[Rfam]
Nucleotides: 055
Stems, first nucleotide, its partner, number of pairs: 001021008
Number, partner (000 for none) and nucleotide at each position: 001021c002020c003019c004018c005017g006016c007015a008014c009000a010000a011000g012000c013000a014008g015007u016006g017005c018004g019003g020002g021001g022000u023000c024000a025000u026000c027000u028000u029000c030000c031000g032000a033000c034000u035000g036000c037000a038000a039000c040000a041000a042000g043000g044000g045000g046000u047000c048000u049000g050000c051000c052000c053000g054000u055000g